[Rfam]
RNA: Selenocysteine transfer RNA
Organism: Acidovorax sp. HDW3
RNA sequence: GGAAGGGAAGCGUCCCUGGUGGGGCGCCCGGGCUUCAAACCCGGUGGGCUGCGCCACGCGUGGCCGGAAGGUUCGACUCCUUCUCCUUUCC
Numbered sequence: 001g002g003a004a005g006g007g008a009a010g011c012g013u014c015c016c017u018g019g020u021g022g023g024g025c026g027c028c029c030g031g032g033c034u035u036c037a038a039a040c041c042c043g044g045u046g047g048g049c050u051g052c053g054c055c056a057c058g059c060g061u062g063g064c065c066g067g068a069a070g071g072u073u074c075g076a077c078u079c080c081u082u083c084u085c086c087u088u089u090c091c
Base pairs, nucleotide, nucleotide: 001091002090003089004088005087006086007085008084011026012025013024014023015022016021028044029043030042031041032040047065048064049063050062051061068082069081070080071079